Shown here is a 125-nucleotide RNA sequence from Lonsdalea quercina, a member of the family "RtT RNA". Pairs were carried over by alignment from the consensus structure, which is taken from published work. Rfam's curators write: This family represents a bacterial cis-regulatory element known as RtT RNA. The exact function of RtT is unknown although it is thought that it may be involved in changing the cellular response in relation to amino acid starvation.
RNA sequence: CUGUUCCCGUAGGGGGGAAGGUGAGAACCUUCGACAAGGUUCGAGUCGAGCAUAGCGAGACAACGUGCGCAGCACGGCCCGAAGGGCGAGGAACGAAGUGACGAGUCAUCCUUCCCCCACCACCA
Numbered sequence: 001c002u003g004u005u006c007c008c009g010u011a012g013g014g015g016g017g018a019a020g021g022u023g024a025g026a027a028c029c030u031u032c033g034a035c036a037a038g039g040u041u042c043g044a045g046u047c048g049a050g051c052a053u054a055g056c057g058a059g060a061c062a063a064c065g066u067g068c069g070c071a072g073c074a075c076g077g078c079c080c081g082a083a084g085g086g087c088g089a090g091g092a093a094c095g096a097a098g099u100g101a102c103g104a105g106u107c108a109u110c111c112u113u114c115c116c117c118c119a120c121c122a123c124c125a
Stems, first nucleotide, its partner, number of pairs: 015116007022108001032088002035085001040083004047057002064076005

NCBI's taxonomy places the organism under Bacteria, Pseudomonadati, Enterobacterales, Pectobacteriaceae, Lonsdalea. The literature on the family includes a 1991 paper in Nucleic Acids Res by Bosl and Kersten, "A novel RNA product of the tyrT operon of Escherichia coli".